[Rfam]
RNA sequence: CGUUAACUUCGGGGCAGGGUGAAAUUCCCUACCGACGGUGAUGACUGCUUCAGCCACUAUAUGGAUGGUUUGAAGCAAGUAUAAGUCCGUGACCCGUAUGCACUUCAUAAUAAGCAUGCGGCUGAGCCGGUGAGAUUCCGGGACCGACAGUAUAGUCUGGAUGGGAGAAGUAAACG
Numbered sequence: 001c002g003u004u005a006a007c008u009u010c011g012g013g014g015c016a017g018g019g020u021g022a023a024a025u026u027c028c029c030u031a032c033c034g035a036c037g038g039u040g041a042u043g044a045c046u047g048c049u050u051c052a053g054c055c056a057c058u059a060u061a062u063g064g065a066u067g068g069u070u071u072g073a074a075g076c077a078a079g080u081a082u083a084a085g086u087c088c089g090u091g092a093c094c095c096g097u098a099u100g101c102a103c104u105u106c107a108u109a110a111u112a113a114g115c116a117u118g119c120g121g122c123u124g125a126g127c128c129g130g131u132g133a134g135a136u137u138c139c140g141g142g143a144c145c146g147a148c149a150g151u152a153u154a155g156u157c158u159g160g161a162u163g164g165g166a167g168a169a170g171u172a173a174a175c176g
Stems, first nucleotide, its partner, number of pairs: 003174002006171005017029003031156002033146002035090004094121006127141004148159003

This 176-nucleotide RNA from Paenibacillus lentus belongs to the Rfam family "FMN riboswitch aptamer (RFN element)". The RFN element is a highly conserved domain that is found frequently in the 5'-untranslated regions of prokaryotic mRNAs that encode for flavin mononucleotide (FMN) biosynthesis and transport proteins. Lineage of the source: Bacteria > Bacillati > Bacillota > Paenibacillaceae > Paenibacillus.